Rfam assigns this 72-nucleotide RNA from Papilio machaon to the family "tRNA". Lineage of the source: Eukaryota > Pancrustacea > Altocrustacea > Dicondylia > Papilio.
[Rfam]
RNA sequence: GGGGGUGUAACUCAGCGGUAGAGUAUCUGCUUCGCAUGCUGAAAGUCCUGGGUUCAAAUCCCAGCACCUCCA
Numbered sequence: 001g002g003g004g005g006u007g008u009a010a011c012u013c014a015g016c017g018g019u020a021g022a023g024u025a026u027c028u029g030c031u032u033c034g035c036a037u038g039c040u041g042a043a044a045g046u047c048c049u050g051g052g053u054u055c056a057a058a059u060c061c062c063a064g065c066a067c068c069u070c071c072a
Base pairs, nucleotide, nucleotide: 001071002070003069004068005067006066007065010024011023012022013021026042027041029039030038048064049063050062051061052060
It scores 65 bits against the family's covariance model.